RNA sequence: GUGCAUAUGAUGGAAAAAAAGUUAAUCUCCUGAGAUUUGUGAUGUCUCCAAAGGAACCACUGAUGCAC
Numbered sequence: 001g002u003g004c005a006u007a008u009g010a011u012g013g014a015a016a017a018a019a020a021g022u023u024a025a026u027c028u029c030c031u032g033a034g035a036u037u038u039g040u041g042a043u044g045u046c047u048c049c050a051a052a053g054g055a056a057c058c059a060c061u062g063a064u065g066c067a068c
Stems, first nucleotide, its partner, number of pairs: 001068005
Shown here is a 68-nucleotide sequence from Cavia porcellus, a member of the family "Small nucleolar RNA SNORD42". Rfam 15.1 lists 848 matches to the family in 572 species. Rfam links the family to the GO terms nucleolus and RNA processing. snoRNA U42 is found in intron 3 of the ribosomal protein L23a (RPL23a) gene in humans and is also present in mice. Pairs were carried over by alignment from the consensus structure, which was predicted with PFOLD. A search with the family's covariance model found it, with a score of 83 bits. A reference for the family is Galardi et al. (2002), "Purified box C/D snoRNPs are able to reproduce site-specific 2'-O-methylation of target RNA in vitro", Mol Cell Biol.